The family of this 90-nucleotide sequence from Salvator merianae is "mir-191 microRNA precursor family". The match comes from Rfam's covariance-model search (89 bits). The base pairs follow the family's consensus structure, which was predicted with RNAalifold. Taxonomically the source falls in Salvator (Eukaryota, Tetrapoda, Squamata, Episquamata). A reference for the family is Miska et al. (2004), "Microarray analysis of microRNA expression in the developing mammalian brain", Genome Biol.

RNA sequence: GGCGUGUGAGCAGACAACGGAAUCCCAAAAGCAGCUGUUUUCUUUUAACACUUCAGCUGCGCUUGGAUUUCGUUCCUUGCUCUCCCGCCC
Numbered sequence: 001g002g003c004g005u006g007u008g009a010g011c012a013g014a015c016a017a018c019g020g021a022a023u024c025c026c027a028a029a030a031g032c033a034g035c036u037g038u039u040u041u042c043u044u045u046u047a048a049c050a051c052u053u054c055a056g057c058u059g060c061g062c063u064u065g066g067a068u069u070u071c072g073u074u075c076c077u078u079g080c081u082c083u084c085c086c087g088c089c090c
Base pairs, nucleotide, nucleotide: 009081010080011079012078013077017073018072019071020070021069022068023067024066025065027064028063031060032059033058034057035056036055037054